[Rfam]
RNA sequence: AUACUUUUCUCAGACUUUUUGGUUAAGAACAAGUGUAAUAUCUGUUUUUAUCAAUUUAAUGUCUGAUAUGUGGUGUAUCGGACCACACAAUAUUAACUCUUUUUAAUGAAAAGAUUCCGUUAAGAUGACUUGUUAUAUUUGCUUUUAUGAGUCGUCUAUACGUUGCAAGACUGCUCGGACGUGGCUUCGAUGGA
Dot-bracket structure: .......(((..((((....)))).)))....................(((((..........))))).(((((.(...).))))).........................(((..(.(.....((((....))))..).)..)))..((((((.((...(...........)...))...)))))).......
Numbered sequence: 001a002u003a004c005u006u007u008u009c010u011c012a013g014a015c016u017u018u019u020u021g022g023u024u025a026a027g028a029a030c031a032a033g034u035g036u037a038a039u040a041u042c043u044g045u046u047u048u049u050a051u052c053a054a055u056u057u058a059a060u061g062u063c064u065g066a067u068a069u070g071u072g073g074u075g076u077a078u079c080g081g082a083c084c085a086c087a088c089a090a091u092a093u094u095a096a097c098u099c100u101u102u103u104u105a106a107u108g109a110a111a112a113g114a115u116u117c118c119g120u121u122a123a124g125a126u127g128a129c130u131u132g133u134u135a136u137a138u139u140u141g142c143u144u145u146u147a148u149g150a151g152u153c154g155u156c157u158a159u160a161c162g163u164u165g166c167a168a169g170a171c172u173g174c175u176c177g178g179a180c181g182u183g184g185c186u187u188c189g190a191u192g193g194a
Stems, first nucleotide, its partner, number of pairs: 008028003013024004049068005070086005076080001112146003117141001119139001125136004149187006156178002161173001